[Rfam]
RNA sequence: AUGCCUACUAUGAUGAAAUAUUGCGGAUGUAAAAAUUUAUCGUCUUGUCGGAAAAGCGCAACUUACACAAUGUCGAAAUCUUCCGUUGCCUUCCUUCUGAAUUUAGGCU
Numbered sequence: 001a002u003g004c005c006u007a008c009u010a011u012g013a014u015g016a017a018a019u020a021u022u023g024c025g026g027a028u029g030u031a032a033a034a035a036u037u038u039a040u041c042g043u044c045u046u047g048u049c050g051g052a053a054a055a056g057c058g059c060a061a062c063u064u065a066c067a068c069a070a071u072g073u074c075g076a077a078a079u080c081u082u083c084c085g086u087u088g089c090c091u092u093c094c095u096u097c098u099g100a101a102u103u104u105a106g107g108c109u
Stems, first nucleotide, its partner, number of pairs: 003108003024085004
Small nucleolar RNA Z13/snr52: a 109-nucleotide RNA sequence from Colletotrichum sublineola. The base pairs follow the family's consensus structure, which was predicted with PFOLD. The source organism's lineage runs through Eukaryota, Opisthokonta, Fungi, saccharomyceta and Colletotrichum graminicola species complex.